[Rfam]
A member of the RNA family "Small nucleolar RNA Z13/snr52" from Didymosphaeria variabile, 100 nucleotides long. The match comes from Rfam's covariance-model search (88 bits). The organism belongs to Didymosphaeria, within Eukaryota. The base pairs follow the family's consensus structure, which was predicted with PFOLD.

RNA sequence: AAGAGCACAAUGAUUAAAUAUUUUCGGAUGUAAACACUUUUAACCUCCGAGAGCGCAAAACCGUGUGGAGAUUUCCGUUGCCUUCCUUCUGAGCACCACU
Numbered sequence: 001a002a003g004a005g006c007a008c009a010a011u012g013a014u015u016a017a018a019u020a021u022u023u024u025c026g027g028a029u030g031u032a033a034a035c036a037c038u039u040u041u042a043a044c045c046u047c048c049g050a051g052a053g054c055g056c057a058a059a060a061c062c063g064u065g066u067g068g069a070g071a072u073u074u075c076c077g078u079u080g081c082c083u084u085c086c087u088u089c090u091g092a093g094c095a096c097c098a099c100u
Stems, first nucleotide, its partner, number of pairs: 003099001005097001025077004
Dot-bracket structure: ..(.(...................((((.............................................))))...................).).